[Rfam]
RNA: Purine riboswitch aptamer
RNA sequence: CAUUUUCAACUAAAAAUGACUCGUAUAACGCCGGGGAUAAGGCCCGGAAGUUUCUACCCGGAAACCGUAAAUUUCCGGACUACGAGGGAAUACCGCUAGGAG
Numbered sequence: 001c002a003u004u005u006u007c008a009a010c011u012a013a014a015a016a017u018g019a020c021u022c023g024u025a026u027a028a029c030g031c032c033g034g035g036g037a038u039a040a041g042g043c044c045c046g047g048a049a050g051u052u053u054c055u056a057c058c059c060g061g062a063a064a065c066c067g068u069a070a071a072u073u074u075c076c077g078g079a080c081u082a083c084g085a086g087g088g089a090a091u092a093c094c095g096c097u098a099g100g101a102g
Stems, first nucleotide, its partner, number of pairs: 020086006031047005058078007